[Rfam]
RNA sequence: AUACUUACCUGGCAGGGGAGAUACCAUGAUCAAGAAGGUGGUUUUCCCAGGGUGAGGCUCAUCCAUUAUGCUCGGGUGUGGUGAGCCCUACGAUUUCCCCAAAAUGUGGGAAACUCGAUUGCAUCAUUUGUCUAAAUUAAUGCUGAGUGUAACAGAGAUAUCAG
Dot-bracket structure: ...........((((((((((.(((((..........)))))))))))((((...(.(.(((((.........))))).).)...)))).((((((.((........)).))).))).))))...............(.(((.(...((...))...)))).).
Numbered sequence: 001a002u003a004c005u006u007a008c009c010u011g012g013c014a015g016g017g018g019a020g021a022u023a024c025c026a027u028g029a030u031c032a033a034g035a036a037g038g039u040g041g042u043u044u045u046c047c048c049a050g051g052g053u054g055a056g057g058c059u060c061a062u063c064c065a066u067u068a069u070g071c072u073c074g075g076g077u078g079u080g081g082u083g084a085g086c087c088c089u090a091c092g093a094u095u096u097c098c099c100c101a102a103a104a105u106g107u108g109g110g111a112a113a114c115u116c117g118a119u120u121g122c123a124u125c126a127u128u129u130g131u132c133u134a135a136a137u138u139a140a141u142g143c144u145g146a147g148u149g150u151a152a153c154a155g156a157g158a159u160a161u162c163a164g
Stems, first nucleotide, its partner, number of pairs: 012122004016048006023042005049089004056082001058080001060078005091117003094113003098109002138163001140161003144158001148154002

A member of the RNA family "U1 spliceosomal RNA" from Balaenoptera musculus, 164 nucleotides long. U1 is a small nuclear RNA (snRNA) component of the spliceosome (involved in pre-mRNA splicing). The match comes from Rfam's covariance-model search (98 bits). Taxonomically the source falls in Balaenoptera (Eukaryota, Opisthokonta, Mysticeti, Balaenopteridae). The family's RNA type in Rfam is spliceosomal small nuclear RNA.